A member of the RNA family "Small nucleolar RNA Z279/snoR105/snoR108" from Elaeis guineensis, 106 nucleotides long.
The match comes from Rfam's covariance-model search (82 bits).
Rfam 15.1 lists 906 matches to the family in 223 species.
Rfam classes the family as a C/D-box small nucleolar RNA.
About the family: This family includes the plant snoRNAs known as Z279, snoR105 and snoR108.
The base pairs follow the family's consensus structure, which was predicted with PFOLD.
A reference for the family is Marker et al. (2002), "Experimental RNomics: identification of 140 candidates for small non-messenger RNAs in the plant Arabidopsis thaliana", Curr Biol.
NCBI's taxonomy places the organism under Eukaryota, Magnoliopsida, Liliopsida, Arecoideae, Elaeis.
RNA sequence: GGGAGAUGAUGAGCGGUAAAUGCUCGCGGGAUGCGAGAGGGGCGUCCGCCCCAAAUAAGCCUGUUACGACAAUUGAGGCGCUCUAAUCUUUUACCAAUCUGAUCCC
Numbered sequence: 001g002g003g004a005g006a007u008g009a010u011g012a013g014c015g016g017u018a019a020a021u022g023c024u025c026g027c028g029g030g031a032u033g034c035g036a037g038a039g040g041g042g043c044g045u046c047c048g049c050c051c052c053a054a055a056u057a058a059g060c061c062u063g064u065u066a067c068g069a070c071a072a073u074u075g076a077g078g079c080g081c082u083c084u085a086a087u088c089u090u091u092u093a094c095c096a097a098u099c100u101g102a103u104c105c106c
Stems, first nucleotide, its partner, number of pairs: 001106004015095004023037005039084008061075001063073002